[Rfam]
RNA sequence: AAGGAGCAAUAAACUAUUUCUUUUUCUAUCAAGAAGGCUUAUUGCUCCUUUAAUU
Numbered sequence: 001a002a003g004g005a006g007c008a009a010u011a012a013a014c015u016a017u018u019u020c021u022u023u024u025u026c027u028a029u030c031a032a033g034a035a036g037g038c039u040u041a042u043u044g045c046u047c048c049u050u051u052a053a054u055u
Stems, first nucleotide, its partner, number of pairs: 001050012018035005
Shown here is a 55-nucleotide RNA sequence, a member of the family "Plastid-psbA-3 3UTR RNA". The sequence is in the family's curated seed alignment. Pairs were carried over by alignment from the consensus structure, which was predicted with LocARNA. For this family Rfam cites "Retrograde signaling in plants: A critical review focusing on the GUN pathway and beyond" (Richter et al., Plant Commun, 2023). Clan: Plastid-psbA 3UTR RNA clan. Plastid psbA-3 is a non-coding RNA (ncRNA) present in plastids.